[Rfam]
RNA sequence: AGCCUGGAUGACGAGAAAUUUGAAUUCUACAGUUAUCCCUGUCUGAUCUAUUCAUAGCUGUGCUGAUACCUCUCAAUUCUGACAUUGCU
Number, nucleotide and partner (000 for none) at each position: 001a089002g088003c087004c000005u084006g083007g000008a000009u000010g000011a000012c000013g000014a000015g000016a000017a000018a000019u000020u000021u000022g000023a000024a000025u000026u000027c000028u000029a000030c000031a000032g000033u000034u000035a000036u000037c000038c000039c000040u000041g000042u000043c000044u000045g000046a000047u000048c000049u000050a000051u000052u000053c000054a000055u000056a000057g000058c000059u000060g000061u000062g000063c000064u000065g000066a000067u000068a000069c000070c000071u000072c000073u000074c000075a000076a000077u000078u000079c000080u000081g000082a000083c006084a005085u000086u000087g003088c002089u001

Shown here is an 89-nucleotide RNA sequence from Nyssa sinensis, a member of the family "Small nucleolar RNA R38". A reference for the family is Chen et al. (2003), "The high diversity of snoRNAs in plants: identification and comparative study of 120 snoRNA genes from Oryza sativa", Nucleic Acids Res. Rfam describes the family as follows. snoR38 is a C/D box small nucleolar RNA conserved across yeast, human, Arabidopsis and rice. It is encoded in the intron of elongation factor-1 gamma in both pombe and cerevisiae. snoR38 guides the methylation of 2'-O-ribose sites in 28S rRNA. The family's consensus secondary structure was predicted with PFOLD. The organism belongs to Nyssa, within Eukaryota. It is annotated as a C/D-box small nucleolar RNA. A search with the family's covariance model found it, with a score of 45 bits.